The record is a 77-nucleotide RNA sequence from Atta cephalotes, which matches "mir-34 microRNA precursor family" in Rfam. The family's consensus secondary structure was predicted with RNAalifold. The match comes from Rfam's covariance-model search (55 bits). The source organism's lineage runs through Eukaryota, Ecdysozoa, Arthropoda, Endopterygota and Atta. Rfam's curators write: Human mir-34a was discovered computationally and later experimentally verified.

[Rfam]
RNA sequence: GGCAUGUUGGCAGUGUGGUUAGCUGGUUGUGUGGUCAAUCUAUAUAUCACGACCGCUAUCGGCACUGCAAUUAUGAC
Number, nucleotide and partner (000 for none) at each position: 001g000002g000003c075004a074005u073006g072007u000008u000009g000010g068011c000012a066013g065014u064015g063016u062017g000018g060019u000020u058021a057022g056023c000024u055025g054026g053027u052028u051029g050030u049031g048032u000033g000034g000035u000036c000037a000038a000039u000040c000041u000042a000043u000044a000045u000046a000047u000048c031049a030050c029051g028052a027053c026054c025055g024056c022057u021058a020059u000060c018061g000062g016063c015064a014065c013066u012067g000068c010069a000070a000071u000072u006073a005074u004075g003076a000077c000